[Rfam]
RNA sequence: CGCGCGGACCGGGCCCCUCUGACGAUGGCUACCCCCUCGUGAUGUCGGACCGCACCG
Numbered sequence: 001c002g003c004g005c006g007g008a009c010c011g012g013g014c015c016c017c018u019c020u021g022a023c024g025a026u027g028g029c030u031a032c033c034c035c036c037u038c039g040u041g042a043u044g045u046c047g048g049a050c051c052g053c054a055c056c057g
Stems, first nucleotide, its partner, number of pairs: 006051002009048004022040004027035002

Overview: Rfam assigns this 57-nucleotide RNA from Palleronia marisminoris to the family "terC RNA". The source organism's lineage runs through Bacteria, Pseudomonadati, Rhodobacterales, Roseobacteraceae and Palleronia.